[Rfam]
RNA sequence: UCAGCCGGUCGGGCAGCCGCGCUUGUUCAAUACCGAAAGGUGGCAAGUGAGGAAAGUCCGGGCUCCAUGGAAACACGAUGCCGGGUAACGCCCGGCGAGGGUGACCUCAGGGAAAGUGCAACAGAGAGCAGACCGCCUGCCAUCGCCCGUAAGGGCAUCGGGCAGGUAAGGGUGAAAGGGUGGGGUAAGAGCCCACCGCGCUGCCGGUAACGGGAGUGGCACGGUAAACCCCAUCGGGAGCAAGACCGAAUAGGGACGGCGCAUCAGGCUUCGGUCUGGUAAUCAGUUUCCGGAUAGCCGUCCGGGUGGGUUGCAAGAGGCGGGUGGCGACAUCCGUCCCAGAUGAAUGGCUGCCGCGUCGGGCUGGAAACAGUCCGGCCAUACAGAACCCGGCUUACAGACCGGCUGACAAU
Numbered sequence: 001u002c003a004g005c006c007g008g009u010c011g012g013g014c015a016g017c018c019g020c021g022c023u024u025g026u027u028c029a030a031u032a033c034c035g036a037a038a039g040g041u042g043g044c045a046a047g048u049g050a051g052g053a054a055a056g057u058c059c060g061g062g063c064u065c066c067a068u069g070g071a072a073a074c075a076c077g078a079u080g081c082c083g084g085g086u087a088a089c090g091c092c093c094g095g096c097g098a099g100g101g102u103g104a105c106c107u108c109a110g111g112g113a114a115a116g117u118g119c120a121a122c123a124g125a126g127a128g129c130a131g132a133c134c135g136c137c138u139g140c141c142a143u144c145g146c147c148c149g150u151a152a153g154g155g156c157a158u159c160g161g162g163c164a165g166g167u168a169a170g171g172g173u174g175a176a177a178g179g180g181u182g183g184g185g186u187a188a189g190a191g192c193c194c195a196c197c198g199c200g201c202u203g204c205c206g207g208u209a210a211c212g213g214g215a216g217u218g219g220c221a222c223g224g225u226a227a228a229c230c231c232c233a234u235c236g237g238g239a240g241c242a243a244g245a246c247c248g249a250a251u252a253g254g255g256a257c258g259g260c261g262c263a264u265c266a267g268g269c270u271u272c273g274g275u276c277u278g279g280u281a282a283u284c285a286g287u288u289u290c291c292g293g294a295u296a297g298c299c300g301u302c303c304g305g306g307u308g309g310g311u312u313g314c315a316a317g318a319g320g321c322g323g324g325u326g327g328c329g330a331c332a333u334c335c336g337u338c339c340c341a342g343a344u345g346a347a348u349g350g351c352u353g354c355c356g357c358g359u360c361g362g363g364c365u366g367g368a369a370a371c372a373g374u375c376c377g378g379c380c381a382u383a384c385a386g387a388a389c390c391c392g393g394c395u396u397a398c399a400g401a402c403c404g405g406c407u408g409a410c411a412a413u
Stems, first nucleotide, its partner, number of pairs: 001409010011398001012355007020049008054396003058393005063240004072289002076236005081095005096110001097108004111231002116229002118225002133171002135167007179197006198220001199218004204213003244312004254303006282295003319338008
The family of this 413-nucleotide sequence from Pseudochrobactrum saccharolyticum is "Bacterial RNase P class A".
It scores 312 bits against the family's covariance model.
By type it is a ribozyme.